[Rfam]
This 128-nucleotide sequence from Halalkalibacter akibai belongs to the Rfam family "Ribosomal protein L20 leader". Rfam links the family to the GO term regulation of gene expression. This family is a putative r-protein leader autoregulatory structure found in B. subtilis and other low-GC Gram-positive bacteria. It is located in the 5' untranslated regions of mRNAs encoding initiation factor 3 followed by ribosomal proteins L35 and L20 (infC-rpmI-rplT). A Rho-independent transcription terminator structure that is probably involved in regulation is included at the 3' end. A search with the family's covariance model found it, with a score of 80 bits.
RNA sequence: CAAAGCAAGCAGAGGCGCCCGCUUCUCACCUGAUGACGCAAUAGCAGUUUACAGGUAUUAAACGUUUCAUUUCUGGAUAAAUGGAAUAAGUGUGGGCGUAUAUAUUGCGCCUACACUUUUUUUGUACU
Numbered sequence: 001c002a003a004a005g006c007a008a009g010c011a012g013a014g015g016c017g018c019c020c021g022c023u024u025c026u027c028a029c030c031u032g033a034u035g036a037c038g039c040a041a042u043a044g045c046a047g048u049u050u051a052c053a054g055g056u057a058u059u060a061a062a063c064g065u066u067u068c069a070u071u072u073c074u075g076g077a078u079a080a081a082u083g084g085a086a087u088a089a090g091u092g093u094g095g096g097c098g099u100a101u102a103u104a105u106u107g108c109g110c111c112u113a114c115a116c117u118u119u120u121u122u123u124g125u126a127c128u
Base pairs, nucleotide, nucleotide: 011026012025013024014023015022016021028056029055030054035049036048037047038045039044091115092114093113094112095111096110097109098108099107100106
The organism belongs to Halalkalibacter akibai, within Bacteria.
By type it is a cis-regulatory leader.
A reference for the family is Zengel and Lindahl (1994), "Diverse mechanisms for regulating ribosomal protein synthesis in Escherichia coli", Prog Nucleic Acid Res Mol Biol.